RNA: sul1 RNA
Organism: Brevundimonas sp. Leaf363
RNA sequence: CCAGGAUCCGGGCCAUCGCCGCCCGGUGGCUAUCCCGUCCGCCCAUCCGUCGGGAAAUC
Numbered sequence: 001c002c003a004g005g006a007u008c009c010g011g012g013c014c015a016u017c018g019c020c021g022c023c024c025g026g027u028g029g030c031u032a033u034c035c036c037g038u039c040c041g042c043c044c045a046u047c048c049g050u051c052g053g054g055a056a057a058u059c
Stems, first nucleotide, its partner, number of pairs: 006027003010023002013018001034054004039049001